RNA sequence: CUUGAGCGAGCCGAGGCGCAGCGGCCGGCCCUCGGGGCGGUGCUGCCCGUAGGUCGCGAGGAGCGCCUGGGCCUC
Number, nucleotide and partner (000 for none) at each position: 001c000002u000003u000004g000005a000006g000007c000008g000009a000010g000011c000012c000013g000014a000015g025016g000017c023018g000019c000020a000021g000022c000023g017024g000025c015026c000027g000028g000029c000030c000031c071032u070033c069034g000035g000036g000037g000038c065039g064040g000041u000042g000043c060044u059045g000046c000047c056048c000049g054050u000051a000052g000053g000054u049055c000056g047057c000058g000059a044060g043061g000062a000063g000064c039065g038066c000067c000068u000069g033070g032071g031072c000073c000074u000075c000

A member of the RNA family "ASpks TB sRNA" from Streptomyces cacaoi, 75 nucleotides long.
The organism belongs to Streptomyces, within Bacteria.
The base pairs follow the family's consensus structure, which is taken from published work.
The match comes from Rfam's covariance-model search (70 bits).
The family's RNA type in Rfam is antisense RNA.